Shown here is a 95-nucleotide RNA from Arcobacter sp. CECT 8983, a member of the family "Selenocysteine transfer RNA". It scores 48 bits against the family's covariance model.
Nucleotides: 095
Base pairs, nucleotide, nucleotide: 001094002093003092004091005090006089007088010026011025012024014023015022016021029043030042031041032040048069049068050067051066052065072086073085074084075083
Number, partner (000 for none) and nucleotide at each position: 001094g002093g003092g004091g005090g006089g007088u008000a009000u010026g011025u012024g013000a014023c015022c016021c017000u018000g019000g020000u021016g022015g023014g024012c025011a026010c027000c028000g029043c030042a031041g032040g033000c034000u035000u036000c037000a038000a039000c040032c041031c042030u043029g044000a045000u046000c047000g048069g049068c050067g051066g052065u053000u054000u055000u056000u057000g058000u059000g060000u061000a062000a063000a064000c065052g066051c067050c068049g069048c070000g071000g072086u073085a074084g075083g076000u077000u078000c079000g080000a081000u082000u083075c084074c085073u086072a087000c088007a089006c090005c091004u092003u093002c094001u095000c